Rfam assigns this 165-nucleotide sequence from Myotis myotis to the family "U1 spliceosomal RNA".
Rfam classes the family as a spliceosomal small nuclear RNA.
It scores 139 bits against the family's covariance model.
The family's consensus secondary structure is taken from published work.
U1 is a small nuclear RNA (snRNA) component of the spliceosome (involved in pre-mRNA splicing).
The source organism's lineage runs through Eukaryota, Eumetazoa, Deuterostomia, Theria and Myotis.
RNA sequence: AUACAUACCUGGCAGGGGAGAUACCGUGAUCAUGAAGGUGGUUUUCCCAGGGAGAGGCUUACCCAUUGCACUCCGGAUAUGCUGGCUCCUGCAAUUUCCCCAAAUGUGGGAAACUCAACUGUAUAAUUUGUGGAAGUGGGGGACUUGUGUUCGUGCUUUCCCCUA
Numbered sequence: 001a002u003a004c005a006u007a008c009c010u011g012g013c014a015g016g017g018g019a020g021a022u023a024c025c026g027u028g029a030u031c032a033u034g035a036a037g038g039u040g041g042u043u044u045u046c047c048c049a050g051g052g053a054g055a056g057g058c059u060u061a062c063c064c065a066u067u068g069c070a071c072u073c074c075g076g077a078u079a080u081g082c083u084g085g086c087u088c089c090u091g092c093a094a095u096u097u098c099c100c101c102a103a104a105u106g107u108g109g110g111a112a113a114c115u116c117a118a119c120u121g122u123a124u125a126a127u128u129u130g131u132g133g134a135a136g137u138g139g140g141g142g143a144c145u146u147g148u149g150u151u152c153g154u155g156c157u158u159u160c161c162c163c164u165a
Stems, first nucleotide, its partner, number of pairs: 012122004016048006023042005049090004054086001056083003060079002063076002094115001095113003099109002138164005147156003